[Rfam]
RNA: c-di-GMP-I riboswitch aptamer
RNA sequence: AGGAAUAGUGGGCAAACUUUCCAAAAGGAAGGGACGCAAAGCCAUGGGUCUAAGGAUGAGUUACAUCUAUGAUUGCCAGGUUGCAUUA
Numbered sequence: 001a002g003g004a005a006u007a008g009u010g011g012g013c014a015a016a017c018u019u020u021c022c023a024a025a026a027g028g029a030a031g032g033g034a035c036g037c038a039a040a041g042c043c044a045u046g047g048g049u050c051u052a053a054g055g056a057u058g059a060g061u062u063a064c065a066u067c068u069a070u071g072a073u074u075g076c077c078a079g080g081u082u083g084c085a086u087u088a
Stems, first nucleotide, its partner, number of pairs: 012037002017032006040082004045078003048073003055067004